[Rfam]
RNA sequence: CACAUCCUUGUCCUAGGGGAGCGGCGCGAUCUGUGAUCGUUUAGUGAGCCCGCGCUGCUGACACCCGUAAUGGAAAAUUUGCCCGUGUCCAGCGCCCUAGUGCGUUGUGGCACAAUUUUUGGACGU
Numbered sequence: 001c002a003c004a005u006c007c008u009u010g011u012c013c014u015a016g017g018g019g020a021g022c023g024g025c026g027c028g029a030u031c032u033g034u035g036a037u038c039g040u041u042u043a044g045u046g047a048g049c050c051c052g053c054g055c056u057g058c059u060g061a062c063a064c065c066c067g068u069a070a071u072g073g074a075a076a077a078u079u080u081g082c083c084c085g086u087g088u089c090c091a092g093c094g095c096c097c098u099a100g101u102g103c104g105u106u107g108u109g110g111c112a113c114a115a116u117u118u119u120u121g122g123a124c125g126u
Stems, first nucleotide, its partner, number of pairs: 005019005021058008031048001038044001085113005090107006

Record summary: Shown here is a 126-nucleotide RNA sequence from Aphis craccivora, a member of the family "U4atac minor spliceosomal RNA". Rfam classes the family as a spliceosomal small nuclear RNA. It scores 64 bits against the family's covariance model. The family has 61 seed sequences and 1,648 matches in Rfam 15.1. The family's consensus secondary structure is taken from published work. A reference for the family is Lorkovic et al. (2005), "Evolutionary conservation of minor U12-type spliceosome between plants and humans", RNA. About the family: U4atac is an essential component of the minor U12-type spliceosome complex which is required for removal of the rarer class of eukaryotic introns (AT-AC, U12-type).